[Rfam]
RNA sequence: GGUCAGUUGUGAUGAGCUGCAUGUUAGUCCGUGUUUCACCUGACACUAAUGAUUAUUUACAUGCUCUGAACUAGACC
Numbered sequence: 001g002g003u004c005a006g007u008u009g010u011g012a013u014g015a016g017c018u019g020c021a022u023g024u025u026a027g028u029c030c031g032u033g034u035u036u037c038a039c040c041u042g043a044c045a046c047u048a049a050u051g052a053u054u055a056u057u058u059a060c061a062u063g064c065u066c067u068g069a070a071c072u073a074g075a076c077c
Stems, first nucleotide, its partner, number of pairs: 001077004005072003

Rfam assigns this 77-nucleotide sequence from Polypterus senegalus to the family "Small nucleolar RNA SNORD126". The family's RNA type in Rfam is C/D-box small nucleolar RNA. The base pairs follow the family's consensus structure, which was predicted with WAR. The literature on the family includes a 2006 paper in Nucleic Acids Res by Yang et al., "snoSeeker: an advanced computational package for screening of guide and orphan snoRNA genes in the human genome".